Rfam assigns this 31-nucleotide RNA sequence from Neogobius melanostomus to the family "Iron response element II". It scores 32 bits against the family's covariance model. The family has 30 seed sequences and 5,197 matches in Rfam 15.1. The family's RNA type in Rfam is cis-regulatory element. NCBI's taxonomy places the organism under Eukaryota, Opisthokonta, Euteleosteomorpha, Ctenosquamata, Neogobius. IRE, TFRC, SLC40A1, SDHB, SLC11A2, CDC42BPA, ACO2, ALAS2_H.SAPIENS, CDC14A, EPAS1, ALAS2, qoxD, Hao1, NDUFS1, transferrin, Aconitate. Pairs were carried over by alignment from the consensus structure, which is taken from published work.
[Rfam]
RNA sequence: UCGUUAUCGGAAGCAGUGUCUUCCAUACUUG
Numbered sequence: 001u002c003g004u005u006a007u008c009g010g011a012a013g014c015a016g017u018g019u020c021u022u023c024c025a026u027a028c029u030u031g
Base pairs, nucleotide, nucleotide: 001031003029005027006026007025009024010023011022012021013020014018